Small nucleolar RNA Z278: a 121-nucleotide sequence from Taxus chinensis.
Rfam 15.1 lists 1,130 matches to the family in 214 species.
The family's RNA type in Rfam is C/D-box small nucleolar RNA.
[Rfam]
RNA sequence: GCUGAUGAGGAAAUGAACCCAGUUAAUGGAGUUGCAGAGGGUUCCAAGCCCUUGAUUAUUAAGGAGAACCUACUUGGAGUUGCCCCUGCAUAUCAAUGACAAUAACGGGUUCCACUGAGGC
Numbered sequence: 001g002c003u004g005a006u007g008a009g010g011a012a013a014u015g016a017a018c019c020c021a022g023u024u025a026a027u028g029g030a031g032u033u034g035c036a037g038a039g040g041g042u043u044c045c046a047a048g049c050c051c052u053u054g055a056u057u058a059u060u061a062a063g064g065a066g067a068a069c070c071u072a073c074u075u076g077g078a079g080u081u082g083c084c085c086c087u088g089c090a091u092a093u094c095a096a097u098g099a100c101a102a103u104a105a106c107g108g109g110u111u112c113c114a115c116u117g118a119g120g121c
Stems, first nucleotide, its partner, number of pairs: 001121003050064005
Gene Ontology terms of the family: nucleolus and RNA processing. NCBI's taxonomy places the organism under Eukaryota, Euphyllophyta, Pinopsida, Pinidae, Taxus. From the family's description: snoZ278 is a C/D box small nucleolar RNA. Its methylation guide targets have not been reported. The base pairs follow the family's consensus structure, which was predicted with PFOLD. A search with the family's covariance model found it, with a score of 47 bits.